[Rfam]
Rfam assigns this 130-nucleotide sequence from Cavia porcellus to the family "Small nucleolar RNA SNORA67". A search with the family's covariance model found it, with a score of 50 bits. It is annotated as an H/ACA-box small nucleolar RNA. Lineage of the source: Eukaryota > Craniata > Mammalia > Theria > Cavia. Pairs were carried over by alignment from the consensus structure, which was predicted with RNAalifold. Rfam describes the family as follows. U67 belongs to the H/ACA class of snoRNAs which are thought to guide the sites of modification of uridines to pseudouridines.

RNA sequence: AUCCAAAGUGAUUCCCUCUCCAAAAGGCAAGUCCUAUCCCUUUCAUAAAAGCACUAUGUUGGAGGAAAAUCUCACAUCCCUGAAAUCUCAUGGGGACAAGGGAUGCUUCAUUCUUUAUGUGGCGAGUAGU
Numbered sequence: 001a002u003c004c005a006a007a008g009u010g011a012u013u014c015c016c017u018c019u020c021c022a023a024a025a026g027g028c029a030a031g032u033c034c035u036a037u038c039c040c041u042u043u044c045a046u047a048a049a050a051g052c053a054c055u056a057u058g059u060u061g062g063a064g065g066a067a068a069a070u071c072u073c074a075c076a077u078c079c080c081u082g083a084a085a086u087c088u089c090a091u092g093g094g095g096a097c098a099a100g101g102g103a104u105g106c107u108u109c110a111u112u113c114u115u116u117a118u119g120u121g122g123c124g125a126g127u128a129g130u
Stems, first nucleotide, its partner, number of pairs: 002063005009056002019048001022042002026040002072125002075122001077121001079119001082116003090111002093108003